[Rfam]
RNA sequence: AAUUGCACGCGCUCUUGAAACUUGCGCCCGGUGCCCCCAUAAUCCGUCUCAUGGUUGUAACUCCGGCGAACUGGAGGCGUUCUGGACAGGGGUUCGAUUCCCCUCACCUCCACCUAAGCGCAGGGCUCGGGCAGUGCUCUUAGGUGGGGGUGCCAUGGCUUCGACAGGGCGAGUGAAGGUAAGCAGGCAACCCGUCAGGCGAUCGACGUUAAUGAAGCAAAUCUCCAAACGCCAACGAUGAGCGUUUCGCACUGGCCGCUUAAGGCCUAUGCCGAGGCUGCUUGAGCCUUGUUACCAAAGAAAAGCCGGCGGGGACUUCGGUCCCCGUCGUUA
Numbered sequence: 001a002a003u004u005g006c007a008c009g010c011g012c013u014c015u016u017g018a019a020a021c022u023u024g025c026g027c028c029c030g031g032u033g034c035c036c037c038c039a040u041a042a043u044c045c046g047u048c049u050c051a052u053g054g055u056u057g058u059a060a061c062u063c064c065g066g067c068g069a070a071c072u073g074g075a076g077g078c079g080u081u082c083u084g085g086a087c088a089g090g091g092g093u094u095c096g097a098u099u100c101c102c103c104u105c106a107c108c109u110c111c112a113c114c115u116a117a118g119c120g121c122a123g124g125g126c127u128c129g130g131g132c133a134g135u136g137c138u139c140u141u142a143g144g145u146g147g148g149g150g151u152g153c154c155a156u157g158g159c160u161u162c163g164a165c166a167g168g169g170c171g172a173g174u175g176a177a178g179g180u181a182a183g184c185a186g187g188c189a190a191c192c193c194g195u196c197a198g199g200c201g202a203u204c205g206a207c208g209u210u211a212a213u214g215a216a217g218c219a220a221a222u223c224u225c226c227a228a229a230c231g232c233c234a235a236c237g238a239u240g241a242g243c244g245u246u247u248c249g250c251a252c253u254g255g256c257c258g259c260u261u262a263a264g265g266c267c268u269a270u271g272c273c274g275a276g277g278c279u280g281c282u283u284g285a286g287c288c289u290u291g292u293u294a295c296c297a298a299a300g301a302a303a304a305g306c307c308g309g310c311g312g313g314g315a316c317u318u319c320g321g322u323c324c325c326c327g328u329c330g331u332u333a
Base pairs, nucleotide, nucleotide: 053192054191055190056189057188063187064186066184067183069180071178072177078171079170080169081168082167083166084165088104089103090102091101092100105152106151107150108149109148110147111146193208194207195206196205275289276288277287278286280306281305282304283303309328310327311326312325313324314323315322316321

Record summary: Rfam assigns this 333-nucleotide RNA from Denitratisoma sp. DHT3 to the family "Betaproteobacteria transfer-messenger RNA". A search with the family's covariance model found it, with a score of 289 bits. Bacterial tmRNA, also known as 10Sa RNA or SsrA, is named for its dual tRNA and mRNA-like properties. The literature on the family includes a 1996 paper in RNA by Williams and Bartel, "Phylogenetic analysis of tmRNA secondary structure". Rfam links the family to the GO term RNA catabolic process. The base pairs follow the family's consensus structure, which is taken from published work.